[Rfam]
RNA sequence: CACACGAGGGCCACAUUUGGUUGGUGUGGUACAGAGAAACCAGCCGCGUUUACAUGGCCGUCGUGUG
Numbered sequence: 001c002a003c004a005c006g007a008g009g010g011c012c013a014c015a016u017u018u019g020g021u022u023g024g025u026g027u028g029g030u031a032c033a034g035a036g037a038a039a040c041c042a043g044c045c046g047c048g049u050u051u052a053c054a055u056g057g058c059c060g061u062c063g064u065g066u067g
Stems, first nucleotide, its partner, number of pairs: 001067007009059004015049002019045007026032002
This 67-nucleotide RNA sequence from Gouania willdenowi belongs to the Rfam family "MAT2A 3'UTR stem loop F".
A reference for the family is Parker et al. (2011), "New families of human regulatory RNA structures identified by comparative analysis of vertebrate genomes", Genome Res.
The family's RNA type in Rfam is cis-regulatory element.